[Rfam]
Shown here is a 111-nucleotide RNA from Desulfobacula toluolica, a member of the family "Group II catalytic intron D1-D4-1". It scores 47 bits against the family's covariance model. Rfam describes the family as follows. Group II introns are found in rRNA, tRNA and mRNA of organelles in fungi, plants and protists, and also in mRNA in bacteria. Pairs were carried over by alignment from the consensus structure. On this family, see Lehmann and Schmidt, Crit Rev Biochem Mol Biol 2003: "Group II introns: structure and catalytic versatility of large natural ribozymes". Rfam links the family to the GO term Group II intron splicing.
RNA sequence: GGCUGAGGGCAGGGUAACCUGUCCUGACCGCAUGGGAGAAGUCAGCAGAGGGCAUAUUAGCCGGUGGAAACGAGCCGUGAACAACACGGAGGACUCACCCCGGUAAAGGCC
Dot-bracket structure: ((...((((((((....))))))))..))............((....)).(((......(((((...................................)))))....)))